[Rfam]
RNA sequence: CGGUUGGGGUCCGCACGGUCCGCCCGGGGGAUUCAACCCGACGGUCUUGAUCGGUCGUCCCCGCCGGCGCGCGCGUGCCCCCCUCCACCCGCCCCGGCCGUCCCUCGCGGGCGGUCGGGCCGCGGGCGGGGGGCCGCCGUCCGGCCGGGGUUCCUCGGCCGCCGUCGGGCGCAUUUCCUCCGCGGCGGUGCGCCGCGACCGGCUCCGGUUCGGCCAGGAAGGGUCAGGGGACGAAGGUGGCUCGCGGGCUCGCGUCCGCGAGCUUUACAGCGCCCCCCCCCCCCCACUUCGCCGCUUACCGCCGGGGCCGCGGGCGACACUCACCUCCGCGCCCUCCUCCCGGCCCUCCCUCGAAAGGGGGGGGGCCGGUGCUGGACGGGGCCCCUCCGCCUCCGACGCGGCUGUCGACCGGGCCGGACUGUCCUCAGUCCGUCGCCCGACCGCGCCGCGCCGCCCAGGGCGGGGACCGGCCCACGACACGGGCGCCCAGGGUCCGCGGCGACGCCGGCCACCCAACCGACCCGUCUUGAAACACGG
Number, nucleotide and partner (000 for none) at each position: 001c519002g518003g517004u516005u515006g514007g513008g512009g510010u000011c508012c507013g000014c000015a000016c000017g115018g000019u000020c114021c113022g112023c111024c110025c109026g108027g000028g000029g000030g000031a000032u000033u000034c000035a000036a000037c000038c000039c000040g000041a000042c000043g000044g000045u000046c000047u000048u000049g000050a000051u000052c000053g000054g000055u000056c000057g000058u000059c000060c000061c000062c000063g000064c000065c000066g000067g000068c000069g000070c000071g000072c000073g000074c000075g000076u000077g000078c000079c000080c000081c000082c000083c000084u000085c000086c000087a000088c000089c000090c000091g000092c000093c000094c000095c000096g000097g000098c000099c000100g000101u000102c000103c000104c000105u000106c000107g000108c026109g025110g024111g023112c022113g021114g020115u017116c000117g000118g000119g500120c499121c498122g497123c496124g495125g494126g493127c492128g000129g000130g000131g000132g000133g000134c000135c000136g000137c000138c000139g000140u000141c000142c000143g000144g000145c000146c000147g000148g000149g000150g000151u000152u000153c000154c000155u000156c000157g000158g000159c000160c000161g000162c000163c000164g000165u000166c000167g000168g000169g000170c000171g000172c000173a000174u000175u000176u000177c000178c000179u000180c000181c000182g000183c000184g000185g000186c000187g000188g000189u000190g000191c000192g000193c000194c000195g000196c000197g000198a000199c000200c000201g000202g000203c000204u000205c000206c000207g000208g000209u000210u000211c000212g000213g000214c000215c000216a000217g000218g000219a000220a000221g000222g000223g000224u000225c000226a000227g000228g000229g000230g000231a000232c000233g000234a000235a000236g000237g000238u000239g000240g000241c000242u000243c000244g000245c000246g000247g000248g000249c000250u000251c000252g000253c000254g000255u000256c000257c000258g000259c000260g000261a000262g000263c000264u000265u000266u000267a000268c000269a000270g000271c000272g000273c000274c000275c000276c000277c000278c000279c000280c000281c000282c000283c000284c000285c000286a000287c000288u000289u000290c000291g000292c000293c000294g000295c000296u000297u000298a000299c000300c000301g000302c000303c000304g000305g000306g000307g000308c000309c000310g000311c000312g000313g000314g000315c000316g000317a000318c000319a000320c000321u000322c000323a000324c000325c000326u000327c000328c000329g000330c000331g000332c000333c000334c000335u000336c000337c000338u000339c000340c000341c000342g000343g000344c000345c000346c000347u000348c000349c000350c000351u000352c000353g000354a000355a000356a000357g000358g000359g000360g000361g000362g000363g000364g000365g000366c000367c000368g000369g000370u000371g000372c000373u000374g000375g000376a000377c000378g000379g000380g000381g000382c000383c000384c000385c000386u000387c000388c000389g000390c000391c000392u000393c000394c000395g000396a000397c000398g000399c000400g000401g000402c000403u000404g000405u000406c000407g000408a000409c000410c000411g000412g000413g000414c000415c000416g000417g000418a000419c000420u000421g000422u000423c000424c000425u000426c000427a000428g000429u000430c000431c000432g000433u000434c000435g000436c000437c000438c000439g000440a000441c000442c000443g000444c000445g000446c000447c000448g000449c000450g000451c000452c000453g000454c000455c000456c000457a000458g000459g000460g000461c000462g000463g000464g000465g000466a000467c000468c000469g000470g000471c000472c000473c000474a000475c000476g000477a000478c000479a000480c000481g000482g000483g000484c000485g000486c000487c000488c000489a000490g000491g000492g127493u126494c125495c124496g123497c122498g121499g120500c119501g000502a000503c000504g000505c000506c000507g012508g011509c000510c009511a000512c008513c007514c006515a005516a004517c003518c002519g001520a000521c000522c537523c536524g535525u534526c000527u000528u000529g000530a000531a000532a000533c000534a525535c524536g523537g522
About this RNA:
Shown here is a 537-nucleotide part of an RNA from Hemibagrus wyckioides, a member of the family "Eukaryotic large subunit ribosomal RNA". The organism belongs to Hemibagrus, within Eukaryota. The family is grouped with related families in Rfam's "LSU clan".